This 132-nucleotide RNA sequence from Brevibacterium luteolum belongs to the Rfam family "ALIL pseudoknot". Rfam classes the family as a cis-regulatory element.
[Rfam]
RNA sequence: UGCGUAUUUUGCCCAGGCGGAGCUCGACCGCCGCUGACAGAUAUCGAUGGUUUCAUCGAUGAUCAUCGCCAUGAGUUCGGAGUCGAGCCGAUCUGUCGAACACUGUCUCAGACAGGUGUACAGGUCGCUGCG
Dot-bracket structure: ...............(((((.......))))).............................................((.((......((.(((((.......................))))).)))).))